[Rfam]
Shown here is a 355-nucleotide RNA sequence from Geotoga petraea, a member of the family "transfer-messenger RNA". By type it is a non-coding RNA gene. About the family: Bacterial tmRNA, also known as 10Sa RNA or SsrA, is named for its dual tRNA and mRNA-like properties. Pairs were carried over by alignment from the consensus structure, which is taken from published work.
RNA sequence: GGGGACGAAAUGGUUUCGACGGGGUAAGACCGUAUAGGGAAGCGAGCCGAGGAUUUCGCAACCUCGUAAAAAAGCGAUACAAUAAACAUAAACGCAGAAGAAAAUUACGCAUUAGCUGCGUAAGAUAACGCAGCCGUCCUCUUACCAGUCUGGCACUUACUGGUAAGAUGGAUGUCAUUACUAAGUGUCUUACAUUGUAGCUUUAUCAUUCGGGCUACAGUGGAAAUUUUAGAAUGAUAGAUUACAAAGCUUCGCCCAUGUAGCUCUUGUAAUCGAAAAUUAAACAUGGACUGCGCUCGGAGAAGCCUAUGCGGUUUUAUUUCGGACGCGGGUUCGAUUCCCGCCGUCUCCACCA
Dot-bracket structure: (((((((............(((((((((((((((((((....((((((((((.[.[[[[..))))).......]]]].]...................................(((((..........)))))(((((.((((.((((...[.[[.[)))).))))..)))))..........].]].]..(((((((((......[[[...))))))))).............]]].((((((((.(((..[.[[....)))..)))))))).............]].]...)))))......)))))))))))))))))))...(((((.......))))))))))))....
Numbered sequence: 001g002g003g004g005a006c007g008a009a010a011u012g013g014u015u016u017c018g019a020c021g022g023g024g025u026a027a028g029a030c031c032g033u034a035u036a037g038g039g040a041a042g043c044g045a046g047c048c049g050a051g052g053a054u055u056u057c058g059c060a061a062c063c064u065c066g067u068a069a070a071a072a073a074g075c076g077a078u079a080c081a082a083u084a085a086a087c088a089u090a091a092a093c094g095c096a097g098a099a100g101a102a103a104a105u106u107a108c109g110c111a112u113u114a115g116c117u118g119c120g121u122a123a124g125a126u127a128a129c130g131c132a133g134c135c136g137u138c139c140u141c142u143u144a145c146c147a148g149u150c151u152g153g154c155a156c157u158u159a160c161u162g163g164u165a166a167g168a169u170g171g172a173u174g175u176c177a178u179u180a181c182u183a184a185g186u187g188u189c190u191u192a193c194a195u196u197g198u199a200g201c202u203u204u205a206u207c208a209u210u211c212g213g214g215c216u217a218c219a220g221u222g223g224a225a226a227u228u229u230u231a232g233a234a235u236g237a238u239a240g241a242u243u244a245c246a247a248a249g250c251u252u253c254g255c256c257c258a259u260g261u262a263g264c265u266c267u268u269g270u271a272a273u274c275g276a277a278a279a280u281u282a283a284a285c286a287u288g289g290a291c292u293g294c295g296c297u298c299g300g301a302g303a304a305g306c307c308u309a310u311g312c313g314g315u316u317u318u319a320u321u322u323c324g325g326a327c328g329c330g331g332g333u334u335c336g337a338u339u340c341c342c343g344c345c346g347u348c349u350c351c352a353c354c355a
Stems, first nucleotide, its partner, number of pairs: 001351007020324019043299005048066005054079001056077004115134005135174005141167004146162004153190001155188002158185001193222009208238003240274008249264003254291001256289002328344005